[Rfam]
RNA: SAM/SAH riboswitch aptamer
Organism: Jannaschia helgolandensis
RNA sequence: CAACCGUCCCAACGGCUUCCUGACGGGGCGCGGUUCAUAAUCGGAGCA
Numbered sequence: 001c002a003a004c005c006g007u008c009c010c011a012a013c014g015g016c017u018u019c020c021u022g023a024c025g026g027g028g029c030g031c032g033g034u035u036c037a038u039a040a041u042c043g044g045a046g047c048a
Base pairs, nucleotide, nucleotide: 005030006029007028008027009026010025013022014021015047016046017045019044020043